[Rfam]
RNA sequence: GUCUUAUCAAGAGAGGUGGAGGGACUGGCCCAAUGAAACCCGACAACCAGUAUCGCAAGAUACAUGGUGUUAAAUCCUGCAGCAUGGCUGCAAGAUAAGAA
Numbered sequence: 001g002u003c004u005u006a007u008c009a010a011g012a013g014a015g016g017u018g019g020a021g022g023g024a025c026u027g028g029c030c031c032a033a034u035g036a037a038a039c040c041c042g043a044c045a046a047c048c049a050g051u052a053u054c055g056c057a058a059g060a061u062a063c064a065u066g067g068u069g070u071u072a073a074a075u076c077c078u079g080c081a082g083c084a085u086g087g088c089u090g091c092a093a094g095a096u097a098a099g100a101a
Stems, first nucleotide, its partner, number of pairs: 002100007013041001015040003021031003025079001027077002042071004047067002050063004075093001080090004
The family of this 101-nucleotide sequence from Clostridium estertheticum is "SAM riboswitch aptamer (S box leader)".
Lineage of the source: Bacteria > Bacillati > Bacillota > Eubacteriales > Clostridium.
It scores 81 bits against the family's covariance model.
Pairs were carried over by alignment from the consensus structure, which is taken from published work.